nrdJ RNA: an 81-nucleotide sequence from Streptomyces kasugaensis. Pairs were carried over by alignment from the consensus structure, which is taken from published work. Taxonomically the source falls in Streptomyces (Bacteria, Bacillati, Actinomycetes, Kitasatosporales). A search with the family's covariance model found it, with a score of 62 bits.
[Rfam]
RNA sequence: ACCUGACCGGGGUCUGUGAGCGGCCCCGGUCGCCAAAAGACAUAUACCGUGCCACGGAAGAAGUGUGCACAUAUGGGCGUU
Numbered sequence: 001a002c003c004u005g006a007c008c009g010g011g012g013u014c015u016g017u018g019a020g021c022g023g024c025c026c027c028g029g030u031c032g033c034c035a036a037a038a039g040a041c042a043u044a045u046a047c048c049g050u051g052c053c054a055c056g057g058a059a060g061a062a063g064u065g066u067g068c069a070c071a072u073a074u075g076g077g078c079g080u081u
Base pairs, nucleotide, nucleotide: 004032005031006030007029008028009027010026011025012024013023014022016021049070050069051068052067053065054064055063